The family of this 141-nucleotide RNA from Planobispora longispora is "c-di-AMP riboswitch aptamer (ydaO/yuaA leader)". A search with the family's covariance model found it, with a score of 81 bits.
RNA sequence: AUGGCACGGAAGCCUAAUCCGCGGCCCCGCGGAGCCGGGAACCCAUGUGUUUCCUGGGGUGAAUCGGCGCGUUCGCGCGCCGUAGGGCACUUCCGAGCCCGAACCCGUCAGCUAACCCGGUAGGCACUGGAAGCCGAGCAA
Dot-bracket structure: ...........(((...((((((....))))))((((((....((.........))(((.....((((..........))))..((((........))))...))).........)))))).)))................